[Rfam]
RNA sequence: ACACGAUAAUGGCAAACUUAUUGAAAGAUAAGGACGCAAAGCCACGGAUCUAAGGUUAUAUAGUAACUAUGAUCGCCGGGUUACCGAA
Numbered sequence: 001a002c003a004c005g006a007u008a009a010u011g012g013c014a015a016a017c018u019u020a021u022u023g024a025a026a027g028a029u030a031a032g033g034a035c036g037c038a039a040a041g042c043c044a045c046g047g048a049u050c051u052a053a054g055g056u057u058a059u060a061u062a063g064u065a066a067c068u069a070u071g072a073u074c075g076c077c078g079g080g081u082u083a084c085c086g087a088a
Base pairs, nucleotide, nucleotide: 012037013036017032018031019030020029021028022027040082041081042080043079045078046077047076048073049072050071055067056066057065058064